Plastid-psbA-4 3UTR RNA: a 62-nucleotide sequence from Morella rubra. The literature on the family includes a 2023 paper in Plant Commun by Richter et al., "Retrograde signaling in plants: A critical review focusing on the GUN pathway and beyond". From the family's description: Plastid psbA-4 is a non-coding RNA (ncRNA) present in plastids. It was identified in inverted repeat sequences in the 3 prime untranslate region (3UTR) of photosystem II quinone-binding protein (psbA). The match comes from Rfam's covariance-model search (57 bits).

[Rfam]
RNA sequence: CGAAUAAAGGAGCAAUACCAAUCCUCUUGAGAGAACAAGAAAGUUGAUUAUUGCUCCUUUAU
Number, nucleotide and partner (000 for none) at each position: 001c000002g000003a000004a000005u000006a060007a059008a058009g057010g056011a055012g054013c053014a052015a051016u050017a049018c000019c000020a000021a044022u043023c000024c000025u040026c039027u038028u037029g036030a000031g000032a000033g000034a000035a000036c029037a028038a027039g026040a025041a000042a000043g022044u021045u000046g000047a000048u000049u017050a016051u015052u014053g013054c012055u011056c010057c009058u008059u007060u006061a000062u000